The family of this 132-nucleotide RNA from Dipodomys ordii is "Small nucleolar RNA SNORA51". NCBI's taxonomy places the organism under Eukaryota, Metazoa, Vertebrata, Dipodomyinae, Dipodomys.
RNA sequence: AGCCUCCUGGUACUUACCACAUGCUGUGUUCUUAGGCUAACUAUAUAGAAAGCAGGAGCAGAAUAACCCUACCCCAUGUAUACCUCAGUACAGGCCCUAUGCUGUGUCUGUAUUGUGAAUGGGGAGACAUGA
Numbered sequence: 001a002g003c004c005u006c007c008u009g010g011u012a013c014u015u016a017c018c019a020c021a022u023g024c025u026g027u028g029u030u031c032u033u034a035g036g037c038u039a040a041c042u043a044u045a046u047a048g049a050a051a052g053c054a055g056g057a058g059c060a061g062a063a064u065a066a067c068c069c070u071a072c073c074c075c076a077u078g079u080a081u082a083c084c085u086c087a088g089u090a091c092a093g094g095c096c097c098u099a100u101g102c103u104g105u106g107u108c109u110g111u112a113u114u115g116u117g118a119a120u121g122g123g124g125a126g127a128c129a130u131g132a
Base pairs, nucleotide, nucleotide: 002059003058005057006056007055008054021042026037027036029034072124073123074122075121076120077119086110087109088108090105091104092103093102